[Rfam]
RNA sequence: CCCACCACGCCUCUCAACGAUGCGUACCACGGUGGGA
Number, nucleotide and partner (000 for none) at each position: 001c036002c035003c034004a033005c032006c031007a000008c024009g023010c022011c000012u000013c000014u000015c000016a000017a000018c000019g000020a000021u000022g010023c009024g008025u000026a000027c000028c000029a000030c000031g006032g005033u004034g003035g002036g001037a000
The record is a 37-nucleotide RNA sequence, which matches "abiF RNA" in Rfam. Rfam classes the family as a small RNA. Rfam 15.1 lists 282 matches to the family in 274 species. Rfam describes the family as follows. Actinobacteria, Bacteroidetes, Clostridia, Proteobacteria, one Clostridia phage.